[Rfam]
Nucleotides: 061
Stems, first nucleotide, its partner, number of pairs: 020041007027033002
Number, partner (000 for none) and nucleotide at each position: 001000c002000g003000a004000u005000a006000a007000u008000g009000g010000c011000c012000a013000a014000c015000a016000g017000a018000c019000u020041u021040g022039g023038a024037g025036a026035c027033u028032g029000a030000c031000a032028c033027a034000u035026g036025u037024u038023u039022u040021u041020g042000u043000a044000c045000a046000g047000c048000u049000a050000g051000u052000u053000g054000u055000u056000a057000a058000g059000c060000c061000a
This 61-nucleotide RNA sequence from Drosophila rhopaloa belongs to the Rfam family "FIE3 (ftz instability element 3') element".
The organism belongs to Sophophora, within Eukaryota.
On this family, see Riedl and Jacobs-Lorena, Mol Cell Biol 1996: "Determinants of Drosophila fushi tarazu mRNA instability".
From the family's description: The fushi tarazu gene is essential for the establishment of the Drosophila embryonic body plan. When first expressed in early embryogenesis, fushi tarazu mRNA is uniformly distributed over most of the embryo. Subsequently, fushi tarazu mRNA expression rapidly evolves into a pattern of seven stripes that encircle the embryo. The instability of fushi tarazu mRNA is probably crucial for attaining this localised pattern of expression. Experiments provide evidence for at least two destabilising elements in the fushi tarazu mRNA, one located within the 5' one-third of the mRNA and the other near the 3' end (termed FIE3 for ftz instability element 3'). The FIE3 lies within a 201-nucleotide sequence just upstream of the polyadenylation signal and can act autonomously to destabilise a heterologous mRNA. Further deletion constructs identified an essential 68-nucleotide element within the FIE3.
Its family is annotated with mRNA destabilization in the Gene Ontology.